[Rfam]
RNA sequence: GUCUCGAUAGCUAAGUGGUAUAGCAUGCGAUUGCAGCGAAAGCUCUUAUCGCAGGGUCCGGUGUUCGAACCACCGUCGGGACU
Numbered sequence: 001g002u003c004u005c006g007a008u009a010g011c012u013a014a015g016u017g018g019u020a021u022a023g024c025a026u027g028c029g030a031u032u033g034c035a036g037c038g039a040a041a042g043c044u045c046u047u048a049u050c051g052c053a054g055g056g057u058c059c060g061g062u063g064u065u066c067g068a069a070c071c072a073c074c075g076u077c078g079g080g081a082c083u
Base pairs, nucleotide, nucleotide: 001082002081003080004079005078006077007076010024011023012022013021026053027052028051029050030049059075060074061073062072063071
The family of this 83-nucleotide RNA from Psilocybe cyanescens is "tRNA". The organism belongs to Psilocybe, within Eukaryota.